[Rfam]
RNA sequence: CUCUUAUUAAGAACCACGAGAUGAAGAUCGAUGAUGUGGUGGCAACCCUAUUGUUUAGAAGGUGCCUUACUUAGCAAGUUUAUCUUGAACAAUAAGAG
Numbered sequence: 001c002u003c004u005u006a007u008u009a010a011g012a013a014c015c016a017c018g019a020g021a022u023g024a025a026g027a028u029c030g031a032u033g034a035u036g037u038g039g040u041g042g043c044a045a046c047c048c049u050a051u052u053g054u055u056u057a058g059a060a061g062g063u064g065c066c067u068u069a070c071u072u073a074g075c076a077a078g079u080u081u082a083u084c085u086u087g088a089a090c091a092a093u094a095a096g097a098g
Stems, first nucleotide, its partner, number of pairs: 001098008013040005020029003026071001041066004046062002048058003075087004
Rfam assigns this 98-nucleotide RNA from Erysipelatoclostridium sp. AM42-17 to the family "SAM riboswitch aptamer (S box leader)". NCBI's taxonomy places the organism under Bacteria, Bacillati, Bacillota, Coprobacillaceae, Thomasclavelia. The match comes from Rfam's covariance-model search (56 bits). Its family is annotated with regulation of gene expression in the Gene Ontology.